[Rfam]
About this RNA:
Rfam assigns this 355-nucleotide part of an RNA from uncultured Poribacteria bacterium 64K2 to the family "Bacterial small subunit ribosomal RNA".

RNA sequence: GGCGUAAAGCGCGCGCAGGCGGUGGAAUAAGUCAGACGUGAAAGGGUUCGGCUCAACCGAGCCAUUGCGUUUGAUACUGUUUCACUUGAGUCUAGAAGAGGAAAGUGGAAUGUAUGGUGUAGCGGUGGAAUGCUUAGAUAUCAUAUAGAACACCCGUGGCGAAGGCGGCUUUCUGGUCUAAGACUGACGCUCAUGCGCGAAAGUUUGGGGAGCAACCGGGAUUAGAUACCCCGCUAGUCCUUACUGUAAACGAUGGGUACUAAGUGUAGGGGGUGUUGAUUCCCUCUGUGCUGUAGCUAACGCAUUAAGUACCCCGCCUGGGGAGUACGGCCGCAAGGUUAAAACUCAAGGUAAU
Numbered sequence: 001g002g003c004g005u006a007a008a009g010c011g012c013g014c015g016c017a018g019g020c021g022g023u024g025g026a027a028u029a030a031g032u033c034a035g036a037c038g039u040g041a042a043a044g045g046g047u048u049c050g051g052c053u054c055a056a057c058c059g060a061g062c063c064a065u066u067g068c069g070u071u072u073g074a075u076a077c078u079g080u081u082u083c084a085c086u087u088g089a090g091u092c093u094a095g096a097a098g099a100g101g102a103a104a105g106u107g108g109a110a111u112g113u114a115u116g117g118u119g120u121a122g123c124g125g126u127g128g129a130a131u132g133c134u135u136a137g138a139u140a141u142c143a144u145a146u147a148g149a150a151c152a153c154c155c156g157u158g159g160c161g162a163a164g165g166c167g168g169c170u171u172u173c174u175g176g177u178c179u180a181a182g183a184c185u186g187a188c189g190c191u192c193a194u195g196c197g198c199g200a201a202a203g204u205u206u207g208g209g210g211a212g213c214a215a216c217c218g219g220g221a222u223u224a225g226a227u228a229c230c231c232c233g234c235u236a237g238u239c240c241u242u243a244c245u246g247u248a249a250a251c252g253a254u255g256g257g258u259a260c261u262a263a264g265u266g267u268a269g270g271g272g273g274u275g276u277u278g279a280u281u282c283c284c285u286c287u288g289u290g291c292u293g294u295a296g297c298u299a300a301c302g303c304a305u306u307a308a309g310u311a312c313c314c315c316g317c318c319u320g321g322g323g324a325g326u327a328c329g330g331c332c333g334c335a336a337g338g339u340u341a342a343a344a345c346u347c348a349a350g351g352u353a354a355u
Stems, first nucleotide, its partner, number of pairs: 001318003009315001011198004018191003022085007030078002032074009045063007089185003093180004100174007107151001111147008122133003159166002203244002207240002212238002217233004255314006263292011296303002320347003329340004

Taxonomically the source falls in Candidatus Poribacteria (Bacteria, Bacteria candidate phyla).
The literature on the family includes a 2002 paper in BMC Bioinformatics by Cannone et al., "The comparative RNA web (CRW) site: an online database of comparative sequence and structure information for ribosomal, intron, and other RNAs".